RNA sequence: AGUUUACAGUGUACAAAGGUCUGAGCCCGUUUGUGCUUGCACAAGAACGGGCGUAAGAUCUUGGUACACGCCCCGGCAUGAGCAUAAAAGCGGAGCGAAUGCUUCGCGAUAUGCGAAUGUCGAGGUGGGAUUGUGGGAGUGCAACGCACGGAGCAAUCCCUGUAAAGA
Numbered sequence: 001a002g003u004u005u006a007c008a009g010u011g012u013a014c015a016a017a018g019g020u021c022u023g024a025g026c027c028c029g030u031u032u033g034u035g036c037u038u039g040c041a042c043a044a045g046a047a048c049g050g051g052c053g054u055a056a057g058a059u060c061u062u063g064g065u066a067c068a069c070g071c072c073c074c075g076g077c078a079u080g081a082g083c084a085u086a087a088a089a090g091c092g093g094a095g096c097g098a099a100u101g102c103u104u105c106g107c108g109a110u111a112u113g114c115g116a117a118u119g120u121c122g123a124g125g126u127g128g129g130a131u132u133g134u135g136g137g138a139g140u141g142c143a144a145c146g147c148a149c150g151g152a153g154c155a156a157u158c159c160c161u162g163u164a165a166a167g168a
Stems, first nucleotide, its partner, number of pairs: 003166005010068004016062007024054001026051006032043004072124001074122006082114004090107007128159007139149004
The record is a 168-nucleotide sequence from Oscillospiraceae bacterium Marseille-Q3528, which matches "Clostridiales-1 RNA" in Rfam. Pairs were carried over by alignment from the consensus structure, which is taken from published work.